[Rfam]
This 132-nucleotide RNA from Peromyscus maniculatus belongs to the Rfam family "Small nucleolar RNA SNORA40". Pairs were carried over by alignment from the consensus structure, which was predicted with RNAalifold. Lineage of the source: Eukaryota > Deuterostomia > Craniata > Cricetidae > Peromyscus maniculatus. The literature on the family includes a 1997 paper in J Mol Biol by Ofengand and Bakin, "Mapping to nucleotide resolution of pseudouridine residues in large subunit ribosomal RNAs from representative eukaryotes, prokaryotes, archaebacteria, mitochondria and chloroplasts".
RNA sequence: AUGGCUAUUAUAGAAAAGUUUGUGAUCAACUGGGAGACAAAGACCCAAAAGACAGGUGUAAAACUAAACCCUCUUUGGGGACCCGGGACUCAUUGUUCAGUAUGAGUUUUGAUACUUAUAAGAAGGAAUAGA
Numbered sequence: 001a002u003g004g005c006u007a008u009u010a011u012a013g014a015a016a017a018g019u020u021u022g023u024g025a026u027c028a029a030c031u032g033g034g035a036g037a038c039a040a041a042g043a044c045c046c047a048a049a050a051g052a053c054a055g056g057u058g059u060a061a062a063a064c065u066a067a068a069c070c071c072u073c074u075u076u077g078g079g080g081a082c083c084c085g086g087g088a089c090u091c092a093u094u095g096u097u098c099a100g101u102a103u104g105a106g107u108u109u110u111g112a113u114a115c116u117u118a119u120a121a122g123a124a125g126g127a128a129u130a131g132a
Stems, first nucleotide, its partner, number of pairs: 001059003005055002008052002011049001018044004023039002068129001071126002074123003078119001084111010